RNA sequence: GGAUCUGCCAGGAGCACAGGGUCUGAGGGUCUGAGAGACUCGGUCCAGAUGCCAGCCUGAGGUCC
Numbered sequence: 001g002g003a004u005c006u007g008c009c010a011g012g013a014g015c016a017c018a019g020g021g022u023c024u025g026a027g028g029g030u031c032u033g034a035g036a037g038a039c040u041c042g043g044u045c046c047a048g049a050u051g052c053c054a055g056c057c058u059g060a061g062g063u064c065c
Stems, first nucleotide, its partner, number of pairs: 001065005
Shown here is a 65-nucleotide sequence from Molossus molossus, a member of the family "Small nucleolar RNA SNORD109A". Rfam's curators write: Humans have two copies of the SNORD109 gene, SNORD109A and SNORD109B. Rfam classes the family as a C/D-box small nucleolar RNA. Lineage of the source: Eukaryota > Sarcopterygii > Tetrapoda > Theria > Molossus. On this family, see Runte et al., Hum Mol Genet 2001: "The IC-SNURF-SNRPN transcript serves as a host for multiple small nucleolar RNA species and as an antisense RNA for UBE3A".